[Rfam]
RNA: Plastid-psbA-3 3UTR RNA
Organism: Jasminum fluminense
RNA sequence: AAAGGAGCAAGAAACUCUUUCUUGUCCUGUCAAGAGGACAUUAUUGCUCCUUUCUUUUU
Numbered sequence: 001a002a003a004g005g006a007g008c009a010a011g012a013a014a015c016u017c018u019u020u021c022u023u024g025u026c027c028u029g030u031c032a033a034g035a036g037g038a039c040a041u042u043a044u045u046g047c048u049c050c051u052u053u054c055u056u057u058u059u
Base pairs, nucleotide, nucleotide: 001053002052003051004050005049006048007047008046009045010044012042013041019036020035021034022033023032024031